Rfam assigns this 130-nucleotide RNA sequence from Populus tomentosa to the family "Small nucleolar RNA snoR111". The match comes from Rfam's covariance-model search (51 bits). Taxonomically the source falls in Populus (Eukaryota, Streptophytina, Gunneridae, fabids).

[Rfam]
RNA sequence: UAAGGGGGAGGAGAGACAAAUUCCACAUGCUUCUUUGUUUUUGAAAGAACCGAGGUUGAACAGAUCUAAUAACUGGGAUAUCCUUUCAGUCAUCAUUCUUUGAUUGAUGAUUCAAUUAUUGCCCGUCCAU
Numbered sequence: 001u002a003a004g005g006g007g008g009a010g011g012a013g014a015g016a017c018a019a020a021u022u023c024c025a026c027a028u029g030c031u032u033c034u035u036u037g038u039u040u041u042u043g044a045a046a047g048a049a050c051c052g053a054g055g056u057u058g059a060a061c062a063g064a065u066c067u068a069a070u071a072a073c074u075g076g077g078a079u080a081u082c083c084u085u086u087c088a089g090u091c092a093u094c095a096u097u098c099u100u101u102g103a104u105u106g107a108u109g110a111u112u113c114a115a116u117u118a119u120u121g122c123c124c125g126u127c128c129a130u
Stems, first nucleotide, its partner, number of pairs: 006041004011036001013033003017029002074125004080116002089111007097103002